[Rfam]
RNA sequence: GAAAACAAAUACCCUAGCGUUUUUUACUUUCUUUUUUACACCCCCACUCUAGGAGGCGGAUUUACUGUGUAAAAACGAAAGUAAAAAUCCAAAGCCUCCCACUGGGAGGCUUUUUCGUC
Numbered sequence: 001g002a003a004a005a006c007a008a009a010u011a012c013c014c015u016a017g018c019g020u021u022u023u024u025u026a027c028u029u030u031c032u033u034u035u036u037u038a039c040a041c042c043c044c045c046a047c048u049c050u051a052g053g054a055g056g057c058g059g060a061u062u063u064a065c066u067g068u069g070u071a072a073a074a075a076c077g078a079a080a081g082u083a084a085a086a087a088u089c090c091a092a093a094g095c096c097u098c099c100c101a102c103u104g105g106g107a108g109g110c111u112u113u114u115u116c117g118u119c
Base pairs, nucleotide, nucleotide: 019089021087022086023085024084025083026082027081028080029079030078031077033075034074036072037071038070039069042056043055044053045052058066059065091113092112093111094110095109096108097107098106099105100104